RNA: terC RNA
RNA sequence: ACUGCGGACCGGGCCCCUCUGGCGGCGCCUGACCUUCAGGCAUCGUGAUGUCGGACCGCAUCG
Number, nucleotide and partner (000 for none) at each position: 001a000002c000003u000004g000005c000006g057007g056008a000009c054010c053011g052012g051013g000014c000015c000016c000017c000018u000019c000020u000021g000022g046023c045024g044025g043026c000027g041028c040029c039030u038031g037032a000033c000034c000035u000036u000037c031038a030039g029040g028041c027042a000043u025044c024045g023046u022047g000048a000049u000050g000051u012052c011053g010054g009055a000056c007057c006058g000059c000060a000061u000062c000063g000